This 73-nucleotide RNA from Xiphophorus maculatus belongs to the Rfam family "Small nucleolar RNA R38". On this family, see Bachellerie et al., Trends Biochem Sci 1995: "Antisense snoRNAs: a family of nucleolar RNAs with long complementarities to rRNA". About the family: snoR38 is a C/D box small nucleolar RNA conserved across yeast, human, Arabidopsis and rice. It is encoded in the intron of elongation factor-1 gamma in both pombe and cerevisiae. snoR38 guides the methylation of 2'-O-ribose sites in 28S rRNA. The source organism's lineage runs through Eukaryota, Vertebrata, Euteleosteomorpha, Ctenosquamata and Xiphophorus. The family's RNA type in Rfam is C/D-box small nucleolar RNA. It scores 63 bits against the family's covariance model.

RNA sequence: UCAAGCCAGUGAUGAUACAAGUUAUCCCUGUCUGAAAAAUAAUUUUGUUGAGUCCUGGUAACCUGAGGCUUGG
Numbered sequence: 001u002c003a004a005g006c007c008a009g010u011g012a013u014g015a016u017a018c019a020a021g022u023u024a025u026c027c028c029u030g031u032c033u034g035a036a037a038a039a040u041a042a043u044u045u046u047g048u049u050g051a052g053u054c055c056u057g058g059u060a061a062c063c064u065g066a067g068g069c070u071u072g073g
Base pairs, nucleotide, nucleotide: 001073002072003071004070005069006068007067